[Rfam]
RNA sequence: AACUUUCUUCGGGGAUGGGUGGAAUUCCCUAUCGACGGUAUAGCCCGUGAGCCCUCCGGGGCAGGAAUCGGUGAAAUUCCGAUGCCGACAGUAAAAGUCUGGAUGGGAGGAGAAGGUU
Numbered sequence: 001a002a003c004u005u006u007c008u009u010c011g012g013g014g015a016u017g018g019g020u021g022g023a024a025u026u027c028c029c030u031a032u033c034g035a036c037g038g039u040a041u042a043g044c045c046c047g048u049g050a051g052c053c054c055u056c057c058g059g060g061g062c063a064g065g066a067a068u069c070g071g072u073g074a075a076a077u078u079c080c081g082a083u084g085c086c087g088a089c090a091g092u093a094a095a096a097g098u099c100u101g102g103a104u105g106g107g108a109g110g111a112g113a114a115g116g117u118u
Base pairs, nucleotide, nucleotide: 003116004115005114006113007112008111009110010109017029018028019027031098032097033087034086035048036047037046038045043085044084053061067083068082069081070080071079089101090100091099
Shown here is a 118-nucleotide sequence from Syntrophomonas wolfei, a member of the family "FMN riboswitch aptamer (RFN element)". NCBI's taxonomy places the organism under Bacteria, Bacillota, Eubacteriales, Syntrophomonas wolfei, Syntrophomonas wolfei subsp. wolfei. The family's consensus secondary structure is taken from published work.